[Rfam]
RNA: Bacterial RNase P class A
Organism: Synechococcus sp. WH 5701
RNA sequence: GAAAGCAGGUGAGGUGGUCGCGAUCGAAGGGAUGACGCCGGCUUCGGCUGGUGGCUCCGGCUUCGGUUGAGGAAAGUCCGGGCUCCCCAAUGGCCAGGCUUGCUGGGUAACGCCCAGUGCGGGUGACCGUGAGGAGAGUGCCACAGAAACACACCGCCGAUGGCCGGGGCCUGGCCCCGCGCACAGGCAAGGGUGCAAGGGUGCGGUAAGAGCGCACCAGCAGCAUCGAGAGGUGCUGGCUCGGUAAACCCCGGCUAGGAGCAAGGCCCAGGGACAACGGUUGGCCAUGACACCCGUCCCGACACAAGUGAGCCGCUCGAGGCCGCCGGUAACGGCGGUCCCAGACAGAUGCCCACCCCGGUCCGCCCCGGCGGGCCGGAACAGAACCCGGCUUAUGUCCUGCUUUCACCC
Numbered sequence: 001g002a003a004a005g006c007a008g009g010u011g012a013g014g015u016g017g018u019c020g021c022g023a024u025c026g027a028a029g030g031g032a033u034g035a036c037g038c039c040g041g042c043u044u045c046g047g048c049u050g051g052u053g054g055c056u057c058c059g060g061c062u063u064c065g066g067u068u069g070a071g072g073a074a075a076g077u078c079c080g081g082g083c084u085c086c087c088c089a090a091u092g093g094c095c096a097g098g099c100u101u102g103c104u105g106g107g108u109a110a111c112g113c114c115c116a117g118u119g120c121g122g123g124u125g126a127c128c129g130u131g132a133g134g135a136g137a138g139u140g141c142c143a144c145a146g147a148a149a150c151a152c153a154c155c156g157c158c159g160a161u162g163g164c165c166g167g168g169g170c171c172u173g174g175c176c177c178c179g180c181g182c183a184c185a186g187g188c189a190a191g192g193g194u195g196c197a198a199g200g201g202u203g204c205g206g207u208a209a210g211a212g213c214g215c216a217c218c219a220g221c222a223g224c225a226u227c228g229a230g231a232g233g234u235g236c237u238g239g240c241u242c243g244g245u246a247a248a249c250c251c252c253g254g255c256u257a258g259g260a261g262c263a264a265g266g267c268c269c270a271g272g273g274a275c276a277a278c279g280g281u282u283g284g285c286c287a288u289g290a291c292a293c294c295c296g297u298c299c300c301g302a303c304a305c306a307a308g309u310g311a312g313c314c315g316c317u318c319g320a321g322g323c324c325g326c327c328g329g330u331a332a333c334g335g336c337g338g339u340c341c342c343a344g345a346c347a348g349a350u351g352c353c354c355a356c357c358c359c360g361g362u363c364c365g366c367c368c369c370g371g372c373g374g375g376c377c378g379g380a381a382c383a384g385a386a387c388c389c390g391g392c393u394u395a396u397g398u399c400c401u402g403c404u405u406u407c408a409c410c411c
Stems, first nucleotide, its partner, number of pairs: 001407009011396001013357005019351001021069009074394003078391005083261004092295002097256003101253002103117005118132001119130004133251002138249002140245003154192002156188003161185002165181002200218006220240001221238007265314003279305001280303005290297002321340008